[Rfam]
RNA sequence: AGGAGGAACAACCGCAGUGGCGGGGCCAGCUCUGGAGCCCUGGAGUCAGCUCCCGCAGGAACUACGGGGCUCUCUGUCCGCAGGGCCUGGAGGCACGGGGCGGG
Numbered sequence: 001a002g003g004a005g006g007a008a009c010a011a012c013c014g015c016a017g018u019g020g021c022g023g024g025g026c027c028a029g030c031u032c033u034g035g036a037g038c039c040c041u042g043g044a045g046u047c048a049g050c051u052c053c054c055g056c057a058g059g060a061a062c063u064a065c066g067g068g069g070c071u072c073u074c075u076g077u078c079c080g081c082a083g084g085g086c087c088u089g090g091a092g093g094c095a096c097g098g099g100g101c102g103g104g
Stems, first nucleotide, its partner, number of pairs: 003096001005094001009089002012085002019078007028071007036063001039059004
Shown here is a 104-nucleotide RNA from Nyctereutes procyonoides, a member of the family "mir-8834 microRNA precursor family". A search with the family's covariance model found it, with a score of 64 bits. Taxonomically the source falls in Nyctereutes (Eukaryota, Metazoa, Teleostomi, Sarcopterygii). The family has 2 seed sequences and 13,926 matches in Rfam 15.1.